The family of this 92-nucleotide RNA sequence from Alteribacter keqinensis is "Glycine riboswitch aptamer". This family represents the bacterial glycine riboswitch.

Nucleotides: 092
Base pairs, nucleotide, nucleotide: 006087007086008085009084010083011082012081013080020033021032022031023030035072036071037070038068039067042066043065044064048059049058
Number, partner (000 for none) and nucleotide at each position: 001000a002000u003000g004000a005000a006087a007086g008085c009084a010083a011082g012081g013080g014000g015000a016000g017000a018000g019000c020033u021032c022031g023030u024000a025000u026000a027000u028000a029000a030023g031022c032021g033020a034000c035072g036071c037070c038068g039067a040000a041000g042066g043065a044064g045000c046000a047000a048059g049058c050000a051000g052000g053000g054000a055000u056000c057000u058049g059048u060000g061000a062000a063000u064044c065043u066042c067039u068038c069000a070037g071036g072035c073000a074000a075000a076000c077000a078000g079000a080013c081012u082011c083010u084009u085008g086007u087006u088000a089000g090000a091000c092000g